[Rfam]
Nucleotides: 088
Base pairs, nucleotide, nucleotide: 002087003086004085007082008081010079011078012077013076015074016073018071020069021068022067023066024065025064029062030061038060039059040058041057046052047051
Number, partner (000 for none) and nucleotide at each position: 001000g002087g003086a004085g005000c006000c007082g008081u009000a010079g011078g012077g013076a014000g015074g016073g017000a018071u019000c020069c021068c022067a023066a024065u025064c026000c027000a028000g029062c030061c031000u032000u033000g034000g035000g036000a037000a038060a039059a040058g041057a042000a043000a044000g045000c046052u047051g048000c049000c050000a051047c052046g053000a054000g055000a056000g057041u058040c059039u060038u061030g062029g063000a064025g065024a066023u067022u068021g069020g070000c071018g072000a073016c074015c075000a076013u077012c078011c079010u080000a081008a082007c083000c084000a085004c086003u087002u088000a

The record is an 88-nucleotide sequence from Equus asinus, which matches "mir-9014 microRNA precursor family" in Rfam. NCBI's taxonomy places the organism under Eukaryota, Chordata, Gnathostomata, Perissodactyla, Equus. Rfam links the family to the GO terms miRNA-mediated post-transcriptional gene silencing and RISC complex. A search with the family's covariance model found it, with a score of 84 bits. Rfam 15.1 lists 581 matches to the family in 2 species.